[Rfam]
RNA: MIR2617 microRNA precursor family
Organism: Medicago truncatula
RNA sequence: AUGAUAGCAUACCCGUUUGGUGAAAUACUCUGAUAAUUAUUUGUUAUUUAAUUACUUUUAGGUAACGGGGUGUUACAUCA
Numbered sequence: 001a002u003g004a005u006a007g008c009a010u011a012c013c014c015g016u017u018u019g020g021u022g023a024a025a026u027a028c029u030c031u032g033a034u035a036a037u038u039a040u041u042u043g044u045u046a047u048u049u050a051a052u053u054a055c056u057u058u059u060a061g062g063u064a065a066c067g068g069g070g071u072g073u074u075a076c077a078u079c080a
Stems, first nucleotide, its partner, number of pairs: 001078003005075006012069006